[Rfam]
Shown here is a 137-nucleotide sequence from Helicobacter macacae, a member of the family "purD RNA motif". Taxonomically the source falls in Helicobacter macacae (Bacteria, Epsilonproteobacteria, Helicobacteraceae, Helicobacter). Gene Ontology term of the family: regulation of gene expression. By type it is a cis-regulatory element. A search with the family's covariance model found it, with a score of 73 bits. The literature on the family includes a 2007 paper in Nucleic Acids Res by Weinberg et al., "Identification of 22 candidate structured RNAs in bacteria using the CMfinder comparative genomics pipeline".

RNA sequence: GUAGCGGUUUUUGUGUGUCGGUAUUCGCGCCUGAAGCCUUUAAGUAGGCGAGUGUCUGCCGCCUAAGAGAAUCCUCCAGCCUUAUUUGUAGCUUGUAAGAGUGGGCUGCGCAAAGUUUAAGUAGCGGUUAUUUGGGU
Numbered sequence: 001g002u003a004g005c006g007g008u009u010u011u012u013g014u015g016u017g018u019c020g021g022u023a024u025u026c027g028c029g030c031c032u033g034a035a036g037c038c039u040u041u042a043a044g045u046a047g048g049c050g051a052g053u054g055u056c057u058g059c060c061g062c063c064u065a066a067g068a069g070a071a072u073c074c075u076c077c078a079g080c081c082u083u084a085u086u087u088g089u090a091g092c093u094u095g096u097a098a099g100a101g102u103g104g105g106c107u108g109c110g111c112a113a114a115g116u117u118u119a120a121g122u123a124g125c126g127g128u129u130a131u132u133u134g135g136g137u
Stems, first nucleotide, its partner, number of pairs: 003075002006073005019061005026054003036049004088109009